[Rfam]
RNA: FMN riboswitch aptamer (RFN element)
Organism: Anaerobacterium chartisolvens
RNA sequence: UACAAUCUUCAGGGUAGGGUGUAAUUCCCAACCGGCGGUAAAGCCCGCGAGCUUAAAGAAUAUCAUUUUAGGUUUUUUUAAGCAGAUUCGGUGAAAUUCCGAAGCCGACAGUAAUUUGUGCAUUGUUUAUAUGCAUUUAAUCAGUCUGGAUGAAAGAAGAUGGUG
Dot-bracket structure: ..(.((((((......(((.......)))...((((((....[[))))..((((((((.................))))))))...(((((.......)))))]])).(((..................................))).......)))))).)..